[Rfam]
RNA sequence: CAUAUAUAGAUGUAAAAUACUCAUAUAUGCUUAAUAAUAUGGUUUAAGCGUUUCUACCAGGGAACCGUAAAUUUCCUGACUAUGGGUGAAUAUGUCUAAGUU
Numbered sequence: 001c002a003u004a005u006a007u008a009g010a011u012g013u014a015a016a017a018u019a020c021u022c023a024u025a026u027a028u029g030c031u032u033a034a035u036a037a038u039a040u041g042g043u044u045u046a047a048g049c050g051u052u053u054c055u056a057c058c059a060g061g062g063a064a065c066c067g068u069a070a071a072u073u074u075c076c077u078g079a080c081u082a083u084g085g086g087u088g089a090a091u092a093u094g095u096c097u098a099a100g101u102u
Stems, first nucleotide, its partner, number of pairs: 018088008029049006058078007
This 102-nucleotide sequence from Defluviitalea raffinosedens belongs to the Rfam family "Purine riboswitch aptamer". Lineage of the source: Bacteria > Clostridia > Lachnospirales > Defluviitaleaceae > Defluviitalea. The base pairs follow the family's consensus structure, which is taken from published work.